[Rfam]
RNA: Bacteroidales-1 6S-Bacteroidales RNA suggested
Organism: Phocaeicola plebeius
RNA sequence: AGCCGUACUUGCAGAAUCGGGAAACUCAUCAAAUCUAAAGAAAUACCGAGACAAGCUUCUACUUCCAAUGGCGGGCCACGCCUUCGGGUAGCAUUUAUGCCGGUGGAUUACAAAGGAGGGGAGCACUCAAAACCUGUCAUUCGGAGUUUCGUCACGCCUCGGGUACGGCUUCUCCU
Numbered sequence: 001a002g003c004c005g006u007a008c009u010u011g012c013a014g015a016a017u018c019g020g021g022a023a024a025c026u027c028a029u030c031a032a033a034u035c036u037a038a039a040g041a042a043a044u045a046c047c048g049a050g051a052c053a054a055g056c057u058u059c060u061a062c063u064u065c066c067a068a069u070g071g072c073g074g075g076c077c078a079c080g081c082c083u084u085c086g087g088g089u090a091g092c093a094u095u096u097a098u099g100c101c102g103g104u105g106g107a108u109u110a111c112a113a114a115g116g117a118g119g120g121g122a123g124c125a126c127u128c129a130a131a132a133c134c135u136g137u138c139a140u141u142c143g144g145a146g147u148u149u150c151g152u153c154a155c156g157c158c159u160c161g162g163g164u165a166c167g168g169c170u171u172c173u174c175c176u
Base pairs, nucleotide, nucleotide: 055124056123057122059121060120062119063118064117065116066115069112070111076106077105078104079103080089081088082087091100092099093098